Group II catalytic intron D1-D4-3: a 173-nucleotide sequence from Roseimaritima multifibrata. About the family: Group II introns are found in rRNA, tRNA and mRNA of organelles in fungi, plants and protists, and also in mRNA in bacteria. The pairing is the family consensus, mapped onto this sequence.

[Rfam]
RNA sequence: CCGUGGGUGACUGCGGGUCUGAAGGAAGCGAUAGGAAGAAUGUAGUGCGUAGCGAAAGCGCACCCGAUACGGCAGGUUGCUCGGACGAGCUUGCAAAAAGUGGCGAUGUCCGAUUCAUGAAUAGGAGCAACAAGUGACUGGGGACGUUAUCAGAUUCAGGGAGUCAGCACAGU
Numbered sequence: 001c002c003g004u005g006g007g008u009g010a011c012u013g014c015g016g017g018u019c020u021g022a023a024g025g026a027a028g029c030g031a032u033a034g035g036a037a038g039a040a041u042g043u044a045g046u047g048c049g050u051a052g053c054g055a056a057a058g059c060g061c062a063c064c065c066g067a068u069a070c071g072g073c074a075g076g077u078u079g080c081u082c083g084g085a086c087g088a089g090c091u092u093g094c095a096a097a098a099a100g101u102g103g104c105g106a107u108g109u110c111c112g113a114u115u116c117a118u119g120a121a122u123a124g125g126a127g128c129a130a131c132a133a134g135u136g137a138c139u140g141g142g143g144a145c146g147u148u149a150u151c152a153g154a155u156u157c158a159g160g161g162a163g164u165c166a167g168c169a170c171a172g173u
Stems, first nucleotide, its partner, number of pairs: 001016006028173002032169001035165002041158002044155001047147004063143003067139001072135002076131007083111004089104003